[Rfam]
RNA sequence: CCGUGCAGCCGGGGAGAUAGCGGUGCCCUGUACCUGCAAUCCGCUACAGCAGGGGUGAUGUCUUGCCUAGGGUGCUUGUAUUGUAGGGCUGCCCUUUAUAAGUGAUGUUGACGUCUGGGUCUUACGCAACAGGAAUUCGUGAACCGUGUCAGGUCAGGAAUGGAGCAGCACUAAGCGAAAGCUCCUGUGUGCCGUAGGGUAGCCUGGGCCGAGUUAACUGUAAAGGUAACGCCUAUGAUAUACAUUCGAAGCAAGGCGCACGG
Numbered sequence: 001c002c003g004u005g006c007a008g009c010c011g012g013g014g015a016g017a018u019a020g021c022g023g024u025g026c027c028c029u030g031u032a033c034c035u036g037c038a039a040u041c042c043g044c045u046a047c048a049g050c051a052g053g054g055g056u057g058a059u060g061u062c063u064u065g066c067c068u069a070g071g072g073u074g075c076u077u078g079u080a081u082u083g084u085a086g087g088g089c090u091g092c093c094c095u096u097u098a099u100a101a102g103u104g105a106u107g108u109u110g111a112c113g114u115c116u117g118g119g120u121c122u123u124a125c126g127c128a129a130c131a132g133g134a135a136u137u138c139g140u141g142a143a144c145c146g147u148g149u150c151a152g153g154u155c156a157g158g159a160a161u162g163g164a165g166c167a168g169c170a171c172u173a174a175g176c177g178a179a180a181g182c183u184c185c186u187g188u189g190u191g192c193c194g195u196a197g198g199g200u201a202g203c204c205u206g207g208g209c210c211g212a213g214u215u216a217a218c219u220g221u222a223a224a225g226g227u228a229a230c231g232c233c234u235a236u237g238a239u240a241u242a243c244a245u246u247c248g249a250a251g252c253a254a255g256g257c258g259c260a261c262g263g
Base pairs, nucleotide, nucleotide: 001263002262003261004260005259006258008056009055010054011029012028013027014026016024018022033053034052035051036050037049062255063254064253065252066251070247071246072245073244074243077242078241079240080239081238082237083236084235085234086233090228091227094225095224096223097222098221099220102218103217104215105214106213113209114208115207116206117205118204119203120202121198122197123196124195125194126193127189128188130187131186132185133184134183136179137178138177139176140175146171147170148169149168154163155162156161
Dot-bracket structure: ((((((.(((((((.(.(...).).))))...(((((...........)))))))).....(((((...(((((..((((((((((...((..((((((..(((((......((((((((((((((((.(((((.(((((.....((((....(((....)))....))))...)))))...)))))))...))))))...))))))))...))).)).)))))).))....)))))))))))))))...)))))..))))))

Bacterial large signal recognition particle RNA: a 263-nucleotide RNA sequence from Anaerocolumna cellulosilytica.
It is annotated as a non-coding RNA gene.
The family is grouped with related families in Rfam's "SRP clan".
The base pairs follow the family's consensus structure, which is taken from published work.
The signal recognition particle (SRP) is a universally conserved ribonucleoprotein involved in the co-translational targeting of proteins to membranes.
The source organism's lineage runs through Bacteria, Bacillota, Lachnospirales, Lachnospiraceae and Anaerocolumna.